RNA sequence: UUCUUAUCAAGAGAGGUGGAGGGACUGACCCUAAGAAGCCUCGGCAACCAGCUUUUGCACGGUGCCAAUUUCAGAGGAUUUACUCAAAUAAAUCCAAAGAUGAGAA
Numbered sequence: 001u002u003c004u005u006a007u008c009a010a011g012a013g014a015g016g017u018g019g020a021g022g023g024a025c026u027g028a029c030c031c032u033a034a035g036a037a038g039c040c041u042c043g044g045c046a047a048c049c050a051g052c053u054u055u056u057g058c059a060c061g062g063u064g065c066c067a068a069u070u071u072c073a074g075a076g077g078a079u080u081u082a083c084u085c086a087a088a089u090a091a092a093u094c095c096a097a098a099g100a101u102g103a104g105a106a
Base pairs, nucleotide, nucleotide: 001106002105003104004103005102006101007100008099013042014041015040016039017038021031022030023029025074026073027072028071043066044065045064046063048062049061051058052057070098076095077094078093079092080091081090
The family of this 106-nucleotide RNA from Metabacillus lacus is "SAM riboswitch aptamer (S box leader)". The match comes from Rfam's covariance-model search (82 bits). Lineage of the source: Bacteria > Bacillati > Bacilli > Bacillaceae > Metabacillus. The base pairs follow the family's consensus structure, which is taken from published work. About the family: The SAM riboswitch is found upstream of a number of genes which code for proteins involved in methionine or cysteine biosynthesis in Gram-positive bacteria.